[Rfam]
RNA sequence: UAGAAUAAUGUAGAUAAGAGAAGUUGAUAAAAUAGAUCUGUAACUUUGAAAAAAGAAUUGACUCUAAGAAUUGAGUAUGUUGAGUCUUGAGCAGAGAUCUCUGAAGCAGAGAAGCACUAGUCAGACAACUGAUGAAGACUCUUCAGUAUCAGAGUGUAAACACUCUUGACAGGCUUCAGCUGUUCAGCAUGCAAUUAAAAAUCAACUUAGAACUGAUAUAGACAAGAGAAAUCUAACUGUCUAAUUAAAACAUAGUAUUGUAAUAAUCAGAAAGUGAUAUUGAUAUAAUGUGAUUUCUGCUCAGUACUCUGAAUGUCAAAGUGAAGAAAUUCAAUCAAGUACAGAUAAACAGCAGAAGUAACUAUAACUCUCUUAAAAUAGUUAAAUAUCUCAUCAUCUAAUUAGUGACAUGCAUGAAUAAAUUAACAAGAUUCUCACUAUCUCUAUUUACUAUCUAGUAAAAUCACAGUCAAGAGAAUGAGCUUGGCAGA
Numbered sequence: 001u002a003g004a005a006u007a008a009u010g011u012a013g014a015u016a017a018g019a020g021a022a023g024u025u026g027a028u029a030a031a032a033u034a035g036a037u038c039u040g041u042a043a044c045u046u047u048g049a050a051a052a053a054a055g056a057a058u059u060g061a062c063u064c065u066a067a068g069a070a071u072u073g074a075g076u077a078u079g080u081u082g083a084g085u086c087u088u089g090a091g092c093a094g095a096g097a098u099c100u101c102u103g104a105a106g107c108a109g110a111g112a113a114g115c116a117c118u119a120g121u122c123a124g125a126c127a128a129c130u131g132a133u134g135a136a137g138a139c140u141c142u143u144c145a146g147u148a149u150c151a152g153a154g155u156g157u158a159a160a161c162a163c164u165c166u167u168g169a170c171a172g173g174c175u176u177c178a179g180c181u182g183u184u185c186a187g188c189a190u191g192c193a194a195u196u197a198a199a200a201a202u203c204a205a206c207u208u209a210g211a212a213c214u215g216a217u218a219u220a221g222a223c224a225a226g227a228g229a230a231a232u233c234u235a236a237c238u239g240u241c242u243a244a245u246u247a248a249a250a251c252a253u254a255g256u257a258u259u260g261u262a263a264u265a266a267u268c269a270g271a272a273a274g275u276g277a278u279a280u281u282g283a284u285a286u287a288a289u290g291u292g293a294u295u296u297c298u299g300c301u302c303a304g305u306a307c308u309c310u311g312a313a314u315g316u317c318a319a320a321g322u323g324a325a326g327a328a329a330u331u332c333a334a335u336c337a338a339g340u341a342c343a344g345a346u347a348a349a350c351a352g353c354a355g356a357a358g359u360a361a362c363u364a365u366a367a368c369u370c371u372c373u374u375a376a377a378a379u380a381g382u383u384a385a386a387u388a389u390c391u392c393a394u395c396a397u398c399u400a401a402u403u404a405g406u407g408a409c410a411u412g413c414a415u416g417a418a419u420a421a422a423u424u425a426a427c428a429a430g431a432u433u434c435u436c437a438c439u440a441u442c443u444c445u446a447u448u449u450a451c452u453a454u455c456u457a458g459u460a461a462a463a464u465c466a467c468a469g470u471c472a473a474g475a476g477a478a479u480g481a482g483c484u485u486g487g488c489a490g491a
Base pairs, nucleotide, nucleotide: 001457002456003455004454010451011450012449013448014447015446016445018443020441035059036058037057039055060214063211064210065209066208067207068206070202071201072200075192076191077190078189079188080187081186082185083184084170085169086168089165090164091163099154100153101152102151103150104149106147107146109144110143111142113140114139118135120133121132122131123130124129215219228435230433231432232431233430234428238252239251240250255291256290257289258288259287260286261285262284266278267277268276269275295422296421299353300352301351304350305349306346308344311342314341315340316339322333323332324331325330355371357369358368359367373377394408395407396406397405470487471486472485473484474483

A member of the RNA family "Eukaryotic large subunit ribosomal RNA" from Blastomyces gilchristii, 491 nucleotides of a longer RNA. Rfam's curators put it in the seed alignment. Lineage of the source: Eukaryota > Opisthokonta > saccharomyceta > Pezizomycotina > Blastomyces gilchristii. Rfam 15.1 lists 107,465 matches to the family in 2,616 species. Pairs were carried over by alignment from the consensus structure, which is taken from published work.